[Rfam]
RNA sequence: AUCUCCCUGUCGUUGCAUUCAUUCCAUUACCGGCCGCGGCGUGCAGGUUCUUAUGCGGCCGGUAAUGGAAUGAAUGCAACGACAGGAAGGG
Numbered sequence: 001a002u003c004u005c006c007c008u009g010u011c012g013u014u015g016c017a018u019u020c021a022u023u024c025c026a027u028u029a030c031c032g033g034c035c036g037c038g039g040c041g042u043g044c045a046g047g048u049u050c051u052u053a054u055g056c057g058g059c060c061g062g063u064a065a066u067g068g069a070a071u072g073a074a075u076g077c078a079a080c081g082a083c084a085g086g087a088a089g090g091g
Stems, first nucleotide, its partner, number of pairs: 003089002006086032
Notes
The family of this 91-nucleotide RNA sequence from Plutella xylostella is "mir-8515 microRNA precursor family". It is one of the family's seed sequences. Lineage of the source: Eukaryota > Metazoa > Mandibulata > Pancrustacea > Plutella.